[Rfam]
RNA: Archaeal small subunit ribosomal RNA, nucleotides 1 to 510
RNA sequence: AUUCCGGUUGAUCCUGCCGGAGACUACCGCUAUCGGAGUCCGAUUUAGCCAUGCUAGUCCACCGAACCUUUGGUUCGGGGCGGAAAGCUGAGUAACACGUGGCCAACCUACCCUGUGGACAGGAAUAACCUCGGGAAACUGAGGAUAAUGCCUGAUAGCAGAACCAUGCUGGAAACGCAGGUUCUGUGAAAUGACACGUCGCCACAGGAUGGGGCCGCGGCUGAUUAGGUUGUCGGUGAGGUAACGGCUCACCGAGCCCGUAAUCAGUAGCAGCCGUGGGAGCGGUAGCUGCCAGUCGUGUUCUGAGACAAGAACACGGGCCCUACGGGGCGCAGCAGGCACGAAACCUUUACAAUGCACGCGAGUGCGAUAGGGGGACUCCGAGUGCGUUCUUCCCACAAGGAAGGACGCUUUUCUGCACUGUAAGGAGGUGCAGGAACAAGGGGUGGGCAAGACUGCUGCCAGCCGCCGCGGUAAUAGCAGCACCCCGAGUGGUAGUCGUUAUUAUUG
Numbered sequence: 001a002u003u004c005c006g007g008u009u010g011a012u013c014c015u016g017c018c019g020g021a022g023a024c025u026a027c028c029g030c031u032a033u034c035g036g037a038g039u040c041c042g043a044u045u046u047a048g049c050c051a052u053g054c055u056a057g058u059c060c061a062c063c064g065a066a067c068c069u070u071u072g073g074u075u076c077g078g079g080g081c082g083g084a085a086a087g088c089u090g091a092g093u094a095a096c097a098c099g100u101g102g103c104c105a106a107c108c109u110a111c112c113c114u115g116u117g118g119a120c121a122g123g124a125a126u127a128a129c130c131u132c133g134g135g136a137a138a139c140u141g142a143g144g145a146u147a148a149u150g151c152c153u154g155a156u157a158g159c160a161g162a163a164c165c166a167u168g169c170u171g172g173a174a175a176c177g178c179a180g181g182u183u184c185u186g187u188g189a190a191a192u193g194a195c196a197c198g199u200c201g202c203c204a205c206a207g208g209a210u211g212g213g214g215c216c217g218c219g220g221c222u223g224a225u226u227a228g229g230u231u232g233u234c235g236g237u238g239a240g241g242u243a244a245c246g247g248c249u250c251a252c253c254g255a256g257c258c259c260g261u262a263a264u265c266a267g268u269a270g271c272a273g274c275c276g277u278g279g280g281a282g283c284g285g286u287a288g289c290u291g292c293c294a295g296u297c298g299u300g301u302u303c304u305g306a307g308a309c310a311a312g313a314a315c316a317c318g319g320g321c322c323c324u325a326c327g328g329g330g331c332g333c334a335g336c337a338g339g340c341a342c343g344a345a346a347c348c349u350u351u352a353c354a355a356u357g358c359a360c361g362c363g364a365g366u367g368c369g370a371u372a373g374g375g376g377g378a379c380u381c382c383g384a385g386u387g388c389g390u391u392c393u394u395c396c397c398a399c400a401a402g403g404a405a406g407g408a409c410g411c412u413u414u415u416c417u418g419c420a421c422u423g424u425a426a427g428g429a430g431g432u433g434c435a436g437g438a439a440c441a442a443g444g445g446g447u448g449g450g451c452a453a454g455a456c457u458g459c460u461g462c463c464a465g466c467c468g469c470c471g472c473g474g475u476a477a478u479a480g481c482a483g484c485a486c487c488c489c490g491a492g493u494g495g496u497a498g499u500c501g502u503u504a505u506u507a508u509u510g
Stems, first nucleotide, its partner, number of pairs: 004020005022500010033384009042342001048340003052337003057081003062078007088295003098219007107212002112208007120154004129144006159186007168178002193200002221267003228258003233255008270292004274285004297318006320331004348374001350373003356369005387411010416436007443489006456483004465472002